[Rfam]
RNA sequence: GAGGCGGAUAGGAACCAGGUUGUGUAUUUUAUGCAAUUUGGGCCGACAUCCCCGCCAAAAUGAAUGUUCUUGUGAAGAUUUAAGGUCGCUUCUGGAUGUAAUUGGCACCGGGUGCACACCAUCUUCAUCGACAUUU
Numbered sequence: 001g002a003g004g005c006g007g008a009u010a011g012g013a014a015c016c017a018g019g020u021u022g023u024g025u026a027u028u029u030u031a032u033g034c035a036a037u038u039u040g041g042g043c044c045g046a047c048a049u050c051c052c053c054g055c056c057a058a059a060a061u062g063a064a065u066g067u068u069c070u071u072g073u074g075a076a077g078a079u080u081u082a083a084g085g086u087c088g089c090u091u092c093u094g095g096a097u098g099u100a101a102u103u104g105g106c107a108c109c110g111g112g113u114g115c116a117c118a119c120c121a122u123c124u125u126c127a128u129c130g131a132c133a134u135u136u
Stems, first nucleotide, its partner, number of pairs: 003056005011044002015041011072128008084120003088115002091112005097107003
RNA: Nematode snoRNA ceN39
Organism: Caenorhabditis angaria